RNA: Small nucleolar RNA SNORA44
Organism: Octodon degus
RNA sequence: CUGCAGGCCACGGGCUCUCCAACUGCAGGCCACGGGCUCUCCAACUGCAUGCGAGAGCAACCUGGAGAGAUUUUGACAGCUCAGGUCAACCCAAUACCUGUGGCUGCCACUCACCUUUCCUAUAAGA
Numbered sequence: 001c002u003g004c005a006g007g008c009c010a011c012g013g014g015c016u017c018u019c020c021a022a023c024u025g026c027a028g029g030c031c032a033c034g035g036g037c038u039c040u041c042c043a044a045c046u047g048c049a050u051g052c053g054a055g056a057g058c059a060a061c062c063u064g065g066a067g068a069g070a071u072u073u074u075g076a077c078a079g080c081u082c083a084g085g086u087c088a089a090c091c092c093a094a095u096a097c098c099u100g101u102g103g104c105u106g107c108c109a110c111u112c113a114c115c116u117u118u119c120c121u122a123u124a125a126g127a
Stems, first nucleotide, its partner, number of pairs: 008035002013031004064120006079107002082100004